Overview: A member of the RNA family "U5 spliceosomal RNA" from Lentithecium fluviatile, 115 nucleotides long. The source organism's lineage runs through Eukaryota, Dikarya, Pezizomycotina, Lentithecium and Lentithecium fluviatile.

RNA sequence: AGUGUAGUGCGAGGAUUUGUACGAACCCAUUUCUUGCCUUUUGCCGGAAAUGGCCGAGAGUCCCGCACUCCACUACACUUGGUCACUCUUUGGUUAUGUAACGAGAUGAAACUUG
Number, nucleotide and partner (000 for none) at each position: 001a000002g000003u077004g076005u075006a074007g000008u067009g066010c065011g064012a000013g062014g061015a000016u059017u058018u057019g000020u000021a000022c000023g000024a000025a000026c000027c053028c052029a051030u050031u049032u048033c047034u046035u000036g000037c000038c000039u000040u000041u000042u000043g000044c000045c000046g034047g033048a032049a031050a030051u029052g028053g027054c000055c000056g000057a018058g017059a016060g000061u014062c013063c000064c011065g010066c009067a008068c000069u000070c000071c000072a000073c000074u006075a005076c004077a003078c000079u000080u000081g000082g000083u000084c000085a000086c000087u000088c000089u000090u000091u000092g000093g000094u115095u000096a114097u000098g112099u111100a000101a000102c000103g000104a000105g000106a000107u000108g000109a000110a000111a099112c098113u000114u096115g094